[Rfam]
RNA sequence: AAACUUAUUUCAAAAGAAAAAAAGUAUCUGUUCUUAUCAGCUUAAUAUCUGAUACGUACCCCAUCGGGGUACUUCGAUAUUAAACUGAUUUUUGGACCUAGAUGAGGUGCCCGGAGCUUGCUCCGCCCUCAUCACGGGUUGCCCUGGUAUUGCAGUACUUCCAGGCGUGGCCCACCCUCA
Numbered sequence: 001a002a003a004c005u006u007a008u009u010u011c012a013a014a015a016g017a018a019a020a021a022a023a024g025u026a027u028c029u030g031u032u033c034u035u036a037u038c039a040g041c042u043u044a045a046u047a048u049c050u051g052a053u054a055c056g057u058a059c060c061c062c063a064u065c066g067g068g069g070u071a072c073u074u075c076g077a078u079a080u081u082a083a084a085c086u087g088a089u090u091u092u093u094g095g096a097c098c099u100a101g102a103u104g105a106g107g108u109g110c111c112c113g114g115a116g117c118u119u120g121c122u123c124c125g126c127c128c129u130c131a132u133c134a135c136g137g138g139u140u141g142c143c144c145u146g147g148u149a150u151u152g153c154a155g156u157a158c159u160u161c162c163a164g165g166c167g168u169g170g171c172c173c174a175c176c177c178u179c180a
Stems, first nucleotide, its partner, number of pairs: 001010003035054006056072007101133007113124004136173006143165005
The record is a 180-nucleotide RNA from Lottia gigantea, which matches "U2 spliceosomal RNA" in Rfam.
The family's RNA type in Rfam is spliceosomal small nuclear RNA.
From the family's description: U2 is a small nuclear RNA (snRNA) component of the spliceosome (involved in pre-mRNA splicing). Complementary binding between U2 snRNA (in an area lying towards the 5' end but 3' to hairpin I) and the branchpoint sequence (BPS) of the intron results the bulging out of an unpaired adenosine, on the BPS, which initiates a nucleophilic attack at the intronic 5' splice site, thus starting the first of two transesterification reactions that mediate splicing.
The family is grouped with related families in Rfam's "U2 clan".